[Rfam]
RNA: TPP riboswitch aptamer (THI element)
Organism: Veillonella sp. oral taxon 780
RNA sequence: UUAGAAUUGCAAGGGAGCCUAUGUAAUAGGCUGAGAAAGGACUUUGAAGUACCUGACCUUUUGACCUGAUCGGGAUCAUGCCCGCGUAGGAAGCACGCUGACAUAUGUG
Numbered sequence: 001u002u003a004g005a006a007u008u009g010c011a012a013g014g015g016a017g018c019c020u021a022u023g024u025a026a027u028a029g030g031c032u033g034a035g036a037a038a039g040g041a042c043u044u045u046g047a048a049g050u051a052c053c054u055g056a057c058c059u060u061u062u063g064a065c066c067u068g069a070u071c072g073g074g075a076u077c078a079u080g081c082c083c084g085c086g087u088a089g090g091a092a093g094c095a096c097g098c099u100g101a102c103a104u105a106u107g108u109g
Base pairs, nucleotide, nucleotide: 008095009094010093011060012059013058014057016054017031018030019029020028021027039052041050042049065090066089067088068087071084072083073082074081